[Rfam]
The family of this 89-nucleotide RNA from Nylanderia fulva is "mir-252 microRNA precursor family".
The organism belongs to Nylanderia, within Eukaryota.
RNA sequence: UCCUGUUCCUAAGUACUAGUGCCGCAGGAGUGAUUAGGCUGGACAAGACAUUACCAUAUCUCCUGCUGCUCAAGUGCUUAUCAACAGGU
Numbered sequence: 001u002c003c004u005g006u007u008c009c010u011a012a013g014u015a016c017u018a019g020u021g022c023c024g025c026a027g028g029a030g031u032g033a034u035u036a037g038g039c040u041g042g043a044c045a046a047g048a049c050a051u052u053a054c055c056a057u058a059u060c061u062c063c064u065g066c067u068g069c070u071c072a073a074g075u076g077c078u079u080a081u082c083a084a085c086a087g088g089u
Base pairs, nucleotide, nucleotide: 002088003087004086005085006084007083010080011079012078013077014076015075016074017073019071024066025065026064027063028062029061030060
Clan: mir-252 microRNA precursor family. Rfam links the family to the GO terms RISC complex and miRNA-mediated post-transcriptional gene silencing.